The family of this 299-nucleotide sequence from Nitrosomonas cryotolerans is "Bacterial RNase P class A".
The match comes from Rfam's covariance-model search (244 bits).
Gene Ontology terms of the family: dimeric ribonuclease P complex, tRNA processing and ribonuclease P activity.
Rfam classes the family as a ribozyme.
NCBI's taxonomy places the organism under Bacteria, Pseudomonadota, Nitrosomonadales, Nitrosomonas, Nitrosomonas cryotolerans.
RNA sequence: GGAGCUAGCUAGGCGGUCGCUGCCUGUUUUCAUACGAACGCAGGGAGAGGAAAGUCCGGACUCCACAGAGCAGGAUGUCGGCUAACGACCGACCACCGUGAGGUGAGGAAUAGGGCCACAGAGACGAGCGUAUUCAGUUACGGUGAAACGCGGUAACCUCCAUCCGGAGCAAAACCAAAUAGGCAGGCUACGAUGCUGCUCGCUGAGCCUGCGGGUAGGUUGCUUGAGCGUACAGGUAACUGUGCGCCUAGAGGAAUGACUGUCCCCGACAGAAUCCGGCUUAUCGGCUAGCUCCAACU
Numbered sequence: 001g002g003a004g005c006u007a008g009c010u011a012g013g014c015g016g017u018c019g020c021u022g023c024c025u026g027u028u029u030u031c032a033u034a035c036g037a038a039c040g041c042a043g044g045g046a047g048a049g050g051a052a053a054g055u056c057c058g059g060a061c062u063c064c065a066c067a068g069a070g071c072a073g074g075a076u077g078u079c080g081g082c083u084a085a086c087g088a089c090c091g092a093c094c095a096c097c098g099u100g101a102g103g104u105g106a107g108g109a110a111u112a113g114g115g116c117c118a119c120a121g122a123g124a125c126g127a128g129c130g131u132a133u134u135c136a137g138u139u140a141c142g143g144u145g146a147a148a149c150g151c152g153g154u155a156a157c158c159u160c161c162a163u164c165c166g167g168a169g170c171a172a173a174a175c176c177a178a179a180u181a182g183g184c185a186g187g188c189u190a191c192g193a194u195g196c197u198g199c200u201c202g203c204u205g206a207g208c209c210u211g212c213g214g215g216u217a218g219g220u221u222g223c224u225u226g227a228g229c230g231u232a233c234a235g236g237u238a239a240c241u242g243u244g245c246g247c248c249u250a251g252a253g254g255a256a257u258g259a260c261u262g263u264c265c266c267c268g269a270c271a272g273a274a275u276c277c278g279g280c281u282u283a284u285c286g287g288c289u290a291g292c293u294c295c296a297a298c299u
Stems, first nucleotide, its partner, number of pairs: 001295010011284001012264007020047002023044005052282003056279005061169004068201004073165005078092004093107001094105004108160002113158002115154003129142004173221004183212006195203002228247008